[Rfam]
RNA: Archaeal RNase P
RNA sequence: AGGGGCGGGUCAGCUGCUCACGCCCCCUACUCUAGGAGAGGGGGUGAGGAAACUCCGCACACCCCGCGGCUCCACGGCCCCGAAACGGGGCGCGGCGAGUAGCCGCGGCUCCGGCACAGAAACGACACGGCCACCGCUCGGAUGGCGAUGAAGCGGUGAGGAGCCCCCGGCAACGGGGGCUCAGCAACCCGUUGAGGACGGCGGUGGAUGCGUUGAAACGGCCGGUCCCGUGGGGUGCAAGGCCCCCCUAAUUAUUAGGGGGGAUGAGGUGGCCGCGCAACCCCCUGUUGGGGGCCGCAUAGUCUAAUGCAGCUUGUACAGAAUGCGGGUUAUGGCCCGCCCCU
Numbered sequence: 001a002g003g004g005g006c007g008g009g010u011c012a013g014c015u016g017c018u019c020a021c022g023c024c025c026c027c028u029a030c031u032c033u034a035g036g037a038g039a040g041g042g043g044g045u046g047a048g049g050a051a052a053c054u055c056c057g058c059a060c061a062c063c064c065c066g067c068g069g070c071u072c073c074a075c076g077g078c079c080c081c082g083a084a085a086c087g088g089g090g091c092g093c094g095g096c097g098a099g100u101a102g103c104c105g106c107g108g109c110u111c112c113g114g115c116a117c118a119g120a121a122a123c124g125a126c127a128c129g130g131c132c133a134c135c136g137c138u139c140g141g142a143u144g145g146c147g148a149u150g151a152a153g154c155g156g157u158g159a160g161g162a163g164c165c166c167c168c169g170g171c172a173a174c175g176g177g178g179g180c181u182c183a184g185c186a187a188c189c190c191g192u193u194g195a196g197g198a199c200g201g202c203g204g205u206g207g208a209u210g211c212g213u214u215g216a217a218a219c220g221g222c223c224g225g226u227c228c229c230g231u232g233g234g235g236u237g238c239a240a241g242g243c244c245c246c247c248c249u250a251a252u253u254a255u256u257a258g259g260g261g262g263g264a265u266g267a268g269g270u271g272g273c274c275g276c277g278c279a280a281c282c283c284c285c286u287g288u289u290g291g292g293g294g295c296c297g298c299a300u301a302g303u304c305u306a307a308u309g310c311a312g313c314u315u316g317u318a319c320a321g322a323a324u325g326c327g328g329g330u331u332a333u334g335g336c337c338c339g340c341c342c343c344u
Stems, first nucleotide, its partner, number of pairs: 001344003005340007012314006021046008051331003055328005060237004065277006072233005077091005092106005107228002112224004128212002131207008150182002241296004258285005